[Rfam]
RNA sequence: AUAAGCUCUUGUCAAUGAACAAGGGCACUUCAUGCUUGCAUGAAAGGGCAUUUGUUCAUUAGACAAGGCAACGGACAUGAGCAUGUAGCACGAUAGUGCGGAAUGCGAAUGGACGUAGAAUUGCGAAAGCGCGAAGCGCGGAGCAAUUCGUAGCUUAU
Number, nucleotide and partner (000 for none) at each position: 001a158002u157003a156004a155005g154006c153007u152008c067009u066010u065011g064012u000013c000014a060015a059016u058017g057018a056019a055020c054021a053022a052023g051024g000025g049026c048027a000028c046029u045030u043031c042032a041033u040034g039035c000036u000037u000038g000039c034040a033041u032042g031043a030044a000045a029046g028047g000048g026049c025050a000051u023052u022053u021054g020055u019056u018057c017058a016059u015060u014061a000062g000063a000064c011065a010066a009067g008068g000069c000070a000071a116072c115073g114074g000075a000076c111077a110078u109079g000080a000081g106082c105083a104084u103085g000086u000087a000088g099089c098090a097091c096092g000093a000094u000095a000096g091097u090098g089099c088100g000101g000102a000103a084104u083105g082106c081107g000108a000109a078110u077111g076112g000113a000114c073115g072116u071117a000118g149119a148120a147121u146122u145123g144124c143125g000126a000127a000128a000129g139130c138131g137132c136133g000134a000135a000136g132137c131138g130139c129140g000141g000142a000143g124144c123145a122146a121147u120148u119149c118150g000151u000152a007153g006154c005155u004156u003157a002158u001